mir-34 microRNA precursor family: a 70-nucleotide sequence from Tetranychus urticae. Clan: mir-34 clan. A reference for the family is Lim et al. (2003), "Vertebrate microRNA genes", Science. The sequence is in the family's curated seed alignment. The family has 113 seed sequences and 2,256 matches in Rfam 15.1. The family's consensus secondary structure was predicted with RNAalifold. The source organism's lineage runs through Eukaryota, Prostigmata, Raphignathae, Tetranychidae and Tetranychus.
RNA sequence: GAUGUGUGGCAGUGUGGUUAGCUGGUUGUGUAAUAUAAACAACAACCACUGAUUGCACUGCCCAUACAUC
Number, nucleotide and partner (000 for none) at each position: 001g000002a069003u068004g067005u066006g065007u000008g062009g061010c000011a059012g058013u057014g056015u055016g054017g053018u052019u051020a050021g049022c000023u048024g047025g046026u045027u044028g043029u042030g000031u000032a000033a000034u000035a000036u000037a000038a000039a000040c000041a000042a029043c028044a027045a026046c025047c024048a023049c021050u020051g019052a018053u017054u016055g015056c014057a013058c012059u011060g000061c009062c008063c000064a000065u006066a005067c004068a003069u002070c000